[Rfam]
RNA sequence: UUGACAGAAGAGAGUGAGCACACAAAGGGGAAGUUGUAUAAAAGUUUUGUAUAUGGUUGCUUUUGCGUGCUCACUCUCUUUUUGUCAU
Number, nucleotide and partner (000 for none) at each position: 001u000002u087003g086004a085005c084006a083007g082008a081009a080010g078011a077012g076013a075014g074015u073016g072017a071018g070019c069020a068021c067022a000023c065024a064025a063026a062027g061028g060029g000030g000031a000032a000033g000034u000035u000036g000037u000038a000039u000040a000041a000042a000043a000044g000045u000046u000047u000048u000049g000050u000051a000052u000053a000054u000055g000056g000057u000058u000059g000060c028061u027062u026063u025064u024065g023066c000067g021068u020069g019070c018071u017072c016073a015074c014075u013076c012077u011078c010079u000080u009081u008082u007083u006084g005085u004086c003087a002088u000
RNA: mir-156 microRNA precursor family